Background
A member of the RNA family "U5 spliceosomal RNA" from Lates calcarifer, 116 nucleotides long. The match comes from Rfam's covariance-model search (72 bits). Rfam links the family to the GO terms spliceosomal tri-snRNP complex assembly and U5 snRNP. Rfam describes the family as follows. U5 RNA is a component of both types of known spliceosome. The precise function of this molecule is unknown, though it is known that the 5' loop is required for splice site selection and p220 binding, and that both the 3' stem-loop and the Sm site are important for Sm protein binding and cap methylation.
RNA sequence: UGACUCUGGUUUCUCUCAUAACGCACAAGUCUUUCGCUUUUUACUAAAGACUUCCGUGGAGAGGAACGCCAACGAGUUUAAGCUAUUUUUGGUAGGUUUGGCCGUAAGGCUGAGCC
Numbered sequence: 001u002g003a004c005u006c007u008g009g010u011u012u013c014u015c016u017c018a019u020a021a022c023g024c025a026c027a028a029g030u031c032u033u034u035c036g037c038u039u040u041u042u043a044c045u046a047a048a049g050a051c052u053u054c055c056g057u058g059g060a061g062a063g064g065a066a067c068g069c070c071a072a073c074g075a076g077u078u079u080a081a082g083c084u085a086u087u088u089u090u091g092g093u094a095g096g097u098u099u100g101g102c103c104g105u106a107a108g109g110c111u112g113a114g115c116c
Stems, first nucleotide, its partner, number of pairs: 003077004009067008017058002027053008096115006
Dot-bracket structure: ..((((..((((((((((........((((((((...........))))))))...)).))))))))......))))..................((((((........)))))).

Annotation:
NCBI's taxonomy places the organism under Eukaryota, Opisthokonta, Eumetazoa, Chordata, Lates.